[Rfam]
RNA sequence: GAUCGGUGAUGUGAUCAAAAUAUUUGCUACUCUUGACGAGGUGUCAGCCCCUUUUGAUGAUCAUUGAUCACUAACCACCAAGAUCUCUGAGGUC
Numbered sequence: 001g002a003u004c005g006g007u008g009a010u011g012u013g014a015u016c017a018a019a020a021u022a023u024u025u026g027c028u029a030c031u032c033u034u035g036a037c038g039a040g041g042u043g044u045c046a047g048c049c050c051c052u053u054u055u056g057a058u059g060a061u062c063a064u065u066g067a068u069c070a071c072u073a074a075c076c077a078c079c080a081a082g083a084u085c086u087c088u089g090a091g092g093u094c
Stems, first nucleotide, its partner, number of pairs: 001094004
Dot-bracket structure: ((((......................................................................................))))
The record is a 94-nucleotide RNA from Eragrostis curvula, which matches "Small nucleolar RNA SNORD24" in Rfam. On this family, see Nicoloso et al., J Mol Biol 1996: "Intron-encoded, antisense small nucleolar RNAs: the characterization of nine novel species points to their direct role as guides for the 2'-O-ribose methylation of rRNAs".